[Rfam]
RNA sequence: GGCGAUAAACUGCGCCGUGCAAUAGGUACAACGGACCCGGGGGCAGUACCCGGCGGCUCCACCAUAACCCGCUGUAAUUGGCGGUUUUUGACGGGGCCGAACCAGGAUCGACGUGUGCUGAAAGACGGUGUUUUUGCCCGGGCUGAGUAACCCGCAUAAGGCUCACAACACACAAGUGCCAACGAUAACGAAGCACUCGCUCUCGCAGCGUAA
Numbered sequence: 001g002g003c004g005a006u007a008a009a010c011u012g013c014g015c016c017g018u019g020c021a022a023u024a025g026g027u028a029c030a031a032c033g034g035a036c037c038c039g040g041g042g043g044c045a046g047u048a049c050c051c052g053g054c055g056g057c058u059c060c061a062c063c064a065u066a067a068c069c070c071g072c073u074g075u076a077a078u079u080g081g082c083g084g085u086u087u088u089u090g091a092c093g094g095g096g097c098c099g100a101a102c103c104a105g106g107a108u109c110g111a112c113g114u115g116u117g118c119u120g121a122a123a124g125a126c127g128g129u130g131u132u133u134u135u136g137c138c139c140g141g142g143c144u145g146a147g148u149a150a151c152c153c154g155c156a157u158a159a160g161g162c163u164c165a166c167a168a169c170a171c172a173c174a175a176g177u178g179c180c181a182a183c184g185a186u187a188a189c190g191a192a193g194c195a196c197u198c199g200c201u202c203u204c205g206c207a208g209c210g211u212a213a
Stems, first nucleotide, its partner, number of pairs: 001138005015128004027117003031114003037053005054099007139154004
Rfam assigns this 213-nucleotide sequence from Qipengyuania soli to the family "permuted transfer-messenger RNA". NCBI's taxonomy places the organism under Bacteria, Pseudomonadati, Pseudomonadota, Alphaproteobacteria, Qipengyuania. Rfam classes the family as a non-coding RNA gene.